[Rfam]
RNA sequence: AUGACAGCAGGGGGAGAGAACGGUUCGACCGUCGCCGAAGGAGCAAGCGGAAACGUGAAUCUCUCAGGCAAAAGUACUCCUGCCGGACG
Numbered sequence: 001a002u003g004a005c006a007g008c009a010g011g012g013g014g015a016g017a018g019a020a021c022g023g024u025u026c027g028a029c030c031g032u033c034g035c036c037g038a039a040g041g042a043g044c045a046a047g048c049g050g051a052a053a054c055g056u057g058a059a060u061c062u063c064u065c066a067g068g069c070a071a072a073a074g075u076a077c078u079c080c081u082g083c084c085g086g087a088c089g
Stems, first nucleotide, its partner, number of pairs: 007083007020032004034069003037065002041063003047056002